RNA sequence: UAUCAAUACCGGAGAUAAAAUCUCGUCAGGUCGAUAGUUAGAUAAUGAUUUAUUUAAAUUAAGUGUAAUGUAAGUACACCAUACUAACUGGAAUAAAGCUGCAAUUAUGUAGCUUUUUUUCAUGGC
Dot-bracket structure: .......(((((((.......))).)..)))...((((((....((((((......)))...(((((.......))))))))..))))))....(((((((((....)))))))))..........
Source information
The record is a 126-nucleotide RNA sequence from Clostridium sp. CAG:609, which matches "DUF3800-I RNA" in Rfam. The sequence is in the family's curated seed alignment. About the family: Actinobacteria, Firmicutes, Fusobacteria, Proteobacteria (1 example), Tenericutes (2 examples). By type it is a small RNA. NCBI's taxonomy places the organism under Bacteria, Bacillati, Eubacteriales, Clostridiaceae, Clostridium.